[Rfam]
A member of the RNA family "BsrG" from Paenibacillus sp. YN15, 237 nucleotides long. From the family's description: bsrE, bsrG and bsrH pair through intermolecular interactions with antisense sRNAs. They form type I toxin/antitoxin system that includes an mRNA encoding for a short, toxic peptide (bsrE, bsrG and bsrH) and an antitoxin that is comprised of an antisense RNA. bsrG encodes a 39-amino-acid toxin, and the 180 nucleotide antisense sRNA called SR4 acts as the antitoxin (they overlap by 123 nucleotides). SR4 interaction with the 3'UTR of bsrG RNA promotes bsrG degradation and inhibits its translation. BsrG interferes with cell envelope biosynthesis, causes membrane invaginations and delocalisation of the cell wall synthesis and initiates autolysis. bsrE RNA encodes 30 amino-acid toxin peptide. The organism belongs to Paenibacillus, within Bacteria. The match comes from Rfam's covariance-model search (62 bits).

RNA sequence: GCAACUAUAUAGCGACAAGGGCGGACGGCUAAUCUCCCGGAAGGGAGGUGAUGCCAUGAGUGUUUAUGAAACUCUCGUACUAAUGAUUGCUUUCGCAACGUUGGUCGUGCAUAUCAUGAACAAAAAGAAAUAGGCCGCCCUUGACAGGGGACACGGCCUAUUUCUCCGGCUUAACCCAUAAAGCUUAACCGCCUUUGAAGCGGUAGUUGCUACUGAGGGGCUGUUCGCGCAGCUCCU
Numbered sequence: 001g002c003a004a005c006u007a008u009a010u011a012g013c014g015a016c017a018a019g020g021g022c023g024g025a026c027g028g029c030u031a032a033u034c035u036c037c038c039g040g041a042a043g044g045g046a047g048g049u050g051a052u053g054c055c056a057u058g059a060g061u062g063u064u065u066a067u068g069a070a071a072c073u074c075u076c077g078u079a080c081u082a083a084u085g086a087u088u089g090c091u092u093u094c095g096c097a098a099c100g101u102u103g104g105u106c107g108u109g110c111a112u113a114u115c116a117u118g119a120a121c122a123a124a125a126a127g128a129a130a131u132a133g134g135c136c137g138c139c140c141u142u143g144a145c146a147g148g149g150g151a152c153a154c155g156g157c158c159u160a161u162u163u164c165u166c167c168g169g170c171u172u173a174a175c176c177c178a179u180a181a182a183g184c185u186u187a188a189c190c191g192c193c194u195u196u197g198a199a200g201c202g203g204u205a206g207u208u209g210c211u212a213c214u215g216a217g218g219g220g221c222u223g224u225u226c227g228c229g230c231a232g233c234u235c236c237u
Stems, first nucleotide, its partner, number of pairs: 001210005007204001008188001011185003016143006023135001030051001032049001034047005058114001060112004072085001095106001154168003189203004216237009